RNA sequence: GUGCGCCUUCGCCGAAUCCCGCACGUCUGGCUACACCUGCGCGACCAGCAACUUCAGGGAACCGGGGAACCACAACCCCUGGGGUGAAUCGGGCCGGCAGCAGCCGGACCGUAGAGGACCUUCCUCCUCGAACCCGUCAGCUAACCCGGUAGGCGAGCAGGAAGGAAAG
Numbered sequence: 001g002u003g004c005g006c007c008u009u010c011g012c013c014g015a016a017u018c019c020c021g022c023a024c025g026u027c028u029g030g031c032u033a034c035a036c037c038u039g040c041g042c043g044a045c046c047a048g049c050a051a052c053u054u055c056a057g058g059g060a061a062c063c064g065g066g067g068a069a070c071c072a073c074a075a076c077c078c079c080u081g082g083g084g085u086g087a088a089u090c091g092g093g094c095c096g097g098c099a100g101c102a103g104c105c106g107g108a109c110c111g112u113a114g115a116g117g118a119c120c121u122u123c124c125u126c127c128u129c130g131a132a133c134c135c136g137u138c139a140g141c142u143a144a145c146c147c148g149g150u151a152g153g154c155g156a157g158c159a160g161g162a163a164g165g166a167a168a169g
Stems, first nucleotide, its partner, number of pairs: 010155004017060003061150006071081002082135003090111003114129004
RNA: c-di-AMP riboswitch aptamer (ydaO/yuaA leader)
Organism: Streptomyces morookaense